[Rfam]
RNA sequence: UAAAGGUGAUAUAAAAACACAUUGCAGUUGGUAGUCUGCAAGCAUCUUUGAUGUCAGUAACCUUCCCUCCGGGUCGUCCAUUAUCCUUGAUUUUUAC
Numbered sequence: 001u002a003a004a005g006g007u008g009a010u011a012u013a014a015a016a017a018c019a020c021a022u023u024g025c026a027g028u029u030g031g032u033a034g035u036c037u038g039c040a041a042g043c044a045u046c047u048u049u050g051a052u053g054u055c056a057g058u059a060a061c062c063u064u065c066c067c068u069c070c071g072g073g074u075c076g077u078c079c080a081u082u083a084u085c086c087u088u089g090a091u092u093u094u095u096a097c
Stems, first nucleotide, its partner, number of pairs: 005088002008085004022041006042054005065073003
A member of the RNA family "azaaromatic riboswitch aptamer (yjdF RNA)" from Streptococcus hyointestinalis, 97 nucleotides long. A search with the family's covariance model found it, with a score of 82 bits.